MIR1435 microRNA precursor family: a 199-nucleotide sequence from Setaria viridis. The base pairs follow the family's consensus structure, which was predicted with RNAalifold.
[Rfam]
RNA sequence: UAGGUUUGUCCUAAGUCAAAUUUUUCCAAAUUUAACCAAGUUUAUAUAAAAACAUAAAACAUCUAUACUUCCAAAUAUAUGCACUAUCAAAAUAUAUUACAUAGUGGAUUCAAUGAAAGAAAUUUAAUAUUAUAUAUGUUGUUAUAAUUUUCUAUAAAUUUGGCCAAAAAUGGAAAAGUUUGACUUGGGGCAAACCUAA
Numbered sequence: 001u002a003g004g005u006u007u008g009u010c011c012u013a014a015g016u017c018a019a020a021u022u023u024u025u026c027c028a029a030a031u032u033u034a035a036c037c038a039a040g041u042u043u044a045u046a047u048a049a050a051a052a053c054a055u056a057a058a059a060c061a062u063c064u065a066u067a068c069u070u071c072c073a074a075a076u077a078u079a080u081g082c083a084c085u086a087u088c089a090a091a092a093u094a095u096a097u098u099a100c101a102u103a104g105u106g107g108a109u110u111c112a113a114u115g116a117a118a119g120a121a122a123u124u125u126a127a128u129a130u131u132a133u134a135u136a137u138g139u140u141g142u143u144a145u146a147a148u149u150u151u152c153u154a155u156a157a158a159u160u161u162g163g164c165c166a167a168a169a170a171u172g173g174a175a176a177a178g179u180u181u182g183a184c185u186u187g188g189g190g191c192a193a194a195c196c197u198a199a
Stems, first nucleotide, its partner, number of pairs: 005194005011188016031168003045154002048151004055144003058140005064134004073125004
Notes:
The source organism's lineage runs through Eukaryota, Streptophyta, Petrosaviidae, Panicodae and Setaria. Rfam 15.1 lists 1,765 matches to the family in 31 species.